[Rfam]
The family of this 50-nucleotide sequence from Oscillatoria sp. FACHB-1407 is "Nitrogen stress-induced RNA 1". Lineage of the source: Bacteria > Bacillati > Cyanobacteriota > Oscillatoriophycideae > Oscillatoria.
RNA sequence: UGGUAGAUGCACCCUGAUUUAAUCCCUGGCUCACGCUGGGGAUUUUUUAU
Numbered sequence: 001u002g003g004u005a006g007a008u009g010c011a012c013c014c015u016g017a018u019u020u021a022a023u024c025c026c027u028g029g030c031u032c033a034c035g036c037u038g039g040g041g042a043u044u045u046u047u048u049a050u
Stems, first nucleotide, its partner, number of pairs: 002013003023042008